[Rfam]
RNA sequence: GGAUCGGGAGGUCGCCAUUCGGGACGGUGGCCAUGAAUUGAUCCAGACCACGCUGUCUCUGACGGAUGAGGUGCCGGGGCCCGGCGGCUGCCUUG
Numbered sequence: 001g002g003a004u005c006g007g008g009a010g011g012u013c014g015c016c017a018u019u020c021g022g023g024a025c026g027g028u029g030g031c032c033a034u035g036a037a038u039u040g041a042u043c044c045a046g047a048c049c050a051c052g053c054u055g056u057c058u059c060u061g062a063c064g065g066a067u068g069a070g071g072u073g074c075c076g077g078g079g080c081c082c083g084g085c086g087g088c089u090g091c092c093u094u095g
Stems, first nucleotide, its partner, number of pairs: 001044005010032007067095005073088004

Source information:
This 95-nucleotide RNA from Tritonibacter mobilis belongs to the Rfam family "Rhodo-rpoB RNA". By type it is a cis-regulatory element. The base pairs follow the family's consensus structure, which is taken from published work.